Shown here is a 76-nucleotide sequence from Carlito syrichta, a member of the family "mir-1290 microRNA precursor family". The family's consensus secondary structure was predicted with RNAalifold. It scores 83 bits against the family's covariance model. Rfam links the family to the GO terms RISC complex and miRNA-mediated post-transcriptional gene silencing. NCBI's taxonomy places the organism under Eukaryota, Vertebrata, Dipnotetrapodomorpha, Primates, Carlito.
[Rfam]
RNA sequence: GAGUGUCAUGUCAGCACUCAAAAAGUUUCAAAUUUUGGAGCAUUUUGAAUUUUGGAUUUUUGAAUUAGAGAUACUC
Number, nucleotide and partner (000 for none) at each position: 001g076002a075003g074004u073005g072006u071007c070008a000009u000010g000011u068012c000013a066014g065015c000016a000017c000018u063019c062020a061021a060022a059023a058024a057025g000026u000027u056028u055029c054030a053031a052032a051033u000034u049035u048036u047037g046038g045039a044040g000041c000042a000043u000044u039045u038046u037047g036048a035049a034050u000051u032052u031053u030054g029055g028056a027057u024058u023059u022060u021061u020062g019063a018064a000065u014066u013067a000068g011069a000070g007071a006072u005073a004074c003075u002076c001